[Rfam]
RNA sequence: GUCUGUAGAAAAUCACCUUCAGCCUCUACCGUGGCAGUGGGUGAGAUCCGGCACCUAAAGCCAUCAGGGCCUUAGCUCACAGCCUGCCCGCAGUGCGCGCAGAUGAAGCCCAGGCCCCGACACGC
Dot-bracket structure: ....((.(.(..((((.....(((........))).....))))..).).))...............(((((....(((.....(((.......)))......))).....))))).........
RNA: Small nucleolar RNA ACA64